[Rfam]
Shown here is a 194-nucleotide RNA from Halalkalibacter oceani, a member of the family "glycine-GGAnGA riboswitch aptamer".
About the family: glycine-GGAnGA riboswitch is a variant of glycine riboswitch that have in common a U69A change. This riboswitch is associate with genes that encode either saccharopine dehydrogenase or amino acid transporters and other genes with not predicted function.
For this family Rfam cites "Bioinformatic analysis of riboswitch structures uncovers variant classes with altered ligand specificity" (Weinberg et al., Proc Natl Acad Sci U S A, 2017).
NCBI's taxonomy places the organism under Bacteria, Bacillota, Caryophanales, Bacillaceae, Halalkalibacter.
The family's consensus secondary structure is taken from published work.
The match comes from Rfam's covariance-model search (110 bits).
Gene Ontology term of the family: glycine biosynthetic process.

RNA sequence: GCGGAUGAGAAUAAGGGGAGAGACUGCGGAUGGAUGGCAGCGCCGAAGGAGCAAGCGCCAGCAUAGCUGGAUGUGUGAAUCUCUCAGGCAAAAAGACUCUUAUUUGACGCAGCUCUGGAGAGUGCUCAAUUGAGCCACCUACGAAGACACUUUAUUUGCGGAUAAAGGAAACUUUCUGGUUAAAGGACAGAGUU
Numbered sequence: 001g002c003g004g005a006u007g008a009g010a011a012u013a014a015g016g017g018g019a020g021a022g023a024c025u026g027c028g029g030a031u032g033g034a035u036g037g038c039a040g041c042g043c044c045g046a047a048g049g050a051g052c053a054a055g056c057g058c059c060a061g062c063a064u065a066g067c068u069g070g071a072u073g074u075g076u077g078a079a080u081c082u083c084u085c086a087g088g089c090a091a092a093a094a095g096a097c098u099c100u101u102a103u104u105u106g107a108c109g110c111a112g113c114u115c116u117g118g119a120g121a122g123u124g125c126u127c128a129a130u131u132g133a134g135c136c137a138c139c140u141a142c143g144a145a146g147a148c149a150c151u152u153u154a155u156u157u158g159c160g161g162a163u164a165a166a167g168g169a170a171a172c173u174u175u176c177u178g179g180u181u182a183a184a185g186g187a188c189a190g191a192g193u194u
Stems, first nucleotide, its partner, number of pairs: 001110003010104008022041001024040004042089003048085001049083003055076004059069004113192005122136001124135004137180003143176001145173002